Record summary
The record is a 73-nucleotide sequence from Folsomia candida, which matches "mir-87 microRNA precursor family" in Rfam. The source organism's lineage runs through Eukaryota, Opisthokonta, Metazoa, Protostomia and Folsomia. On this family, see Sempere et al., Dev Biol 2003: "Temporal regulation of microRNA expression in Drosophila melanogaster mediated by hormonal signals and broad-Complex gene activity". A search with the family's covariance model found it, with a score of 49 bits.

RNA sequence: CUCUGAUCGGCCUGAAUAGUUGUCUCAACCUUGUUUUAAUUUCGGGUGAGCAAAAAUUCAGGUGAAUCUGACA
Numbered sequence: 001c002u003c004u005g006a007u008c009g010g011c012c013u014g015a016a017u018a019g020u021u022g023u024c025u026c027a028a029c030c031u032u033g034u035u036u037u038a039a040u041u042u043c044g045g046g047u048g049a050g051c052a053a054a055a056a057u058u059c060a061g062g063u064g065a066a067u068c069u070g071a072c073a
Stems, first nucleotide, its partner, number of pairs: 002071002005068003010063006017056001020053002024050004029046003